RNA sequence: GAUCCGUUAGCUCAAUUGACAGAGCAUUGGGCAUGUAACCCAGAGGUUGUGAGUUCGACUCUCACACGGGGCG
Numbered sequence: 001g002a003u004c005c006g007u008u009a010g011c012u013c014a015a016u017u018g019a020c021a022g023a024g025c026a027u028u029g030g031g032c033a034u035g036u037a038a039c040c041c042a043g044a045g046g047u048u049g050u051g052a053g054u055u056c057g058a059c060u061c062u063c064a065c066a067c068g069g070g071g072c073g
Base pairs, nucleotide, nucleotide: 001072003070004069005068006067007066010025011024012023013022027043028042029041030040031039049065050064051063052062053061
RNA: tRNA
Organism: Phaedon cochleariae